[Rfam]
RNA sequence: GAAUAUAACGUACAAAUAAUUUGCUCUUUAGUUUGCAGGCUAAAAGCAUUUCUUUCUAACCAUCUUAGGUGGUCUGCGUU
Numbered sequence: 001g002a003a004u005a006u007a008a009c010g011u012a013c014a015a016a017u018a019a020u021u022u023g024c025u026c027u028u029u030a031g032u033u034u035g036c037a038g039g040c041u042a043a044a045a046g047c048a049u050u051u052c053u054u055u056c057u058a059a060c061c062a063u064c065u066u067a068g069g070u071g072g073u074c075u076g077c078g079u080u
Stems, first nucleotide, its partner, number of pairs: 023047003028043005034078005060072005
Cyanobacterial ribosomal protein S1 leader: an 80-nucleotide RNA sequence from Prochlorococcus marinus. By type it is a cis-regulatory leader. The base pairs follow the family's consensus structure, which is taken from published work. Rfam's curators put it in the seed alignment. From the family's description: cyano-S1 is a ncRNA recognized in the 5-prime region of genes encoding 30S ribosomal protein S1, it has been proposed as an cis regulation element.